This 129-nucleotide sequence from Spinacia oleracea belongs to the Rfam family "Small nucleolar RNA snoR111". Pairs were carried over by alignment from the consensus structure, which was predicted with WAR. A search with the family's covariance model found it, with a score of 50 bits. The organism belongs to Spinacia, within Eukaryota.
RNA sequence: UUUAUGAUCGUCGAUCGUCUUCCAUUCUAUCAAUCAAAAAACAAAGGCAAAAGCGAAGAUGAGCUAUCGUUUCAGUCGUCAUCUUGUACCUUUUCUCAAUUGACGAUUCGAUUGUUGACUCACCUACAU
Numbered sequence: 001u002u003u004a005u006g007a008u009c010g011u012c013g014a015u016c017g018u019c020u021u022c023c024a025u026u027c028u029a030u031c032a033a034u035c036a037a038a039a040a041a042c043a044a045a046g047g048c049a050a051a052a053g054c055g056a057a058g059a060u061g062a063g064c065u066a067u068c069g070u071u072u073c074a075g076u077c078g079u080c081a082u083c084u085u086g087u088a089c090c091u092u093u094u095c096u097c098a099a100u101u102g103a104c105g106a107u108u109c110g111a112u113u114g115u116u117g118a119c120u121c122a123c124c125u126a127c128a129u
Base pairs, nucleotide, nucleotide: 001033002032004030006027057125058124060122061121062120063119066112067111068110069109075107076106077105078104079103080102081101084098